RNA sequence: AGUAGCCAAAUAUUACUUGUGGGUCGAGGGUGGGAUUAUUAACAAGACGAACGUUUCCAAGCACUGUGUCAUAGAUUCCACCAAAAUACAUCGCUUUGAGUACUAACAGAAAUGCUCCUAUUCCCAGAAUGAUUAAAUGAUGUCCCAGUAUUAACCCUAGCUGUUUUGGGUCAUUCCA
Numbered sequence: 001a002g003u004a005g006c007c008a009a010a011u012a013u014u015a016c017u018u019g020u021g022g023g024u025c026g027a028g029g030g031u032g033g034g035a036u037u038a039u040u041a042a043c044a045a046g047a048c049g050a051a052c053g054u055u056u057c058c059a060a061g062c063a064c065u066g067u068g069u070c071a072u073a074g075a076u077u078c079c080a081c082c083a084a085a086a087u088a089c090a091u092c093g094c095u096u097u098g099a100g101u102a103c104u105a106a107c108a109g110a111a112a113u114g115c116u117c118c119u120a121u122u123c124c125c126a127g128a129a130u131g132a133u134u135a136a137a138u139g140a141u142g143u144c145c146c147a148g149u150a151u152u153a154a155c156c157c158u159a160g161c162u163g164u165u166u167u168g169g170g171u172c173a174u175u176c177c178a
Base pairs, nucleotide, nucleotide: 136175137174138173139172140171141170144169145168147166148165
RNA: Antisense RNA which regulates isiA expression